[Rfam]
RNA sequence: CGUGCUGAGGAGCGCUGCGACUAUCUCACCGAUAGCCAGGCUCAGCGCGAGCGAAGUUUCAACUGCGCUCGUUGACU
Dot-bracket structure: .(((((((............(((((.....)))))......))))))).............................
Description: This 77-nucleotide sequence from Thiobacillus denitrificans belongs to the Rfam family "SAH (S-adenosyl-L-homocysteine) riboswitch aptamer". It scores 60 bits against the family's covariance model. The family's consensus secondary structure is taken from published work. Lineage of the source: Bacteria > Pseudomonadati > Pseudomonadota > Thiobacillaceae > Thiobacillus.